[Rfam]
RNA sequence: UAUUUUACAACGGGGUGUCUAUCCUUAUUAUUACAAGGAGCGAAGACUGAGAAAAUACCCGCAACCUGAUCUGGAUAAUGCCAGCGUAGGGAUUGUAGCAAAAGGCUUU
Numbered sequence: 001u002a003u004u005u006u007a008c009a010a011c012g013g014g015g016u017g018u019c020u021a022u023c024c025u026u027a028u029u030a031u032u033a034c035a036a037g038g039a040g041c042g043a044a045g046a047c048u049g050a051g052a053a054a055a056u057a058c059c060c061g062c063a064a065c066c067u068g069a070u071c072u073g074g075a076u077a078a079u080g081c082c083a084g085c086g087u088a089g090g091g092a093u094u095g096u097a098g099c100a101a102a103a104g105g106c107u108u109u
Stems, first nucleotide, its partner, number of pairs: 006097005011061004016055001017047004065090004071084004